[Rfam]
RNA sequence: GGGCUACUAGCUCAAACGGUAGAGCGCUCGCUUUGCAUGCGAGAGGCACGGGGAUCGAUACCCCGGUAGUCCA
Number, nucleotide and partner (000 for none) at each position: 001g072002g071003g070004c069005u068006a067007c066008u000009a000010g025011c024012u023013c022014a000015a000016a000017c000018g000019g000020u000021a000022g013023a012024g011025c010026g000027c043028u042029c041030g040031c039032u000033u000034u000035g000036c000037a000038u000039g031040c030041g029042a028043g027044a000045g000046g000047c000048a000049c065050g064051g063052g062053g061054a000055u000056c000057g000058a000059u000060a000061c053062c052063c051064c050065g049066g007067u006068a005069g004070u003071c002072c001073a000
A member of the RNA family "tRNA" from Soboliphyme baturini, 73 nucleotides long. The match comes from Rfam's covariance-model search (58 bits). Lineage of the source: Eukaryota > Metazoa > Dioctophymatida > Soboliphymatidae > Soboliphyme.